[Rfam]
Nucleotides: 131
Stems, first nucleotide, its partner, number of pairs: 011117004018027003028112006038046002047097003055070004073091004
Number, partner (000 for none) and nucleotide at each position: 001000a002000g003000a004000u005000u006000u007000u008000a009000a010000g011117c012116g013115c014114u015000u016000a017000a018027u019026c020025a021000g022000u023000u024000u025020u026019g027018a028112g029111c030110g031109g032108g033107g034000g035000a036000a037000c038046c039045a040000u041000u042000u043000u044000u045039u046038g047097g048096g049095g050000u051000g052000a053000a054000u055070c056069u057068u058067g059000g060000u061000u062000u063000u064000u065000g066000c067058c068057a069056g070055g071000u072000a073091g074090g075089g076088u077000u078000a079000a080000c081000u082000c083000u084000u085000u086000c087000g088076a089075c090074c091073c092000g093000a094000a095049c096048c097047c098000g099000u100000c101000a102000g103000c104000u105000a106000a107033c108032c109031u110030c111029g112028u113000a114014g115013g116012c117011g118000u119000u120000g121000a122000u123000a124000g125000a126000g127000g128000a129000g130000u131000a

c-di-AMP riboswitch aptamer (ydaO/yuaA leader): a 131-nucleotide sequence from Acetivibrio thermocellus.
It is one of the family's seed sequences.
The base pairs follow the family's consensus structure.
Taxonomically the source falls in Acetivibrio thermocellus (Bacteria, Bacillati, Clostridia, Acetivibrionales).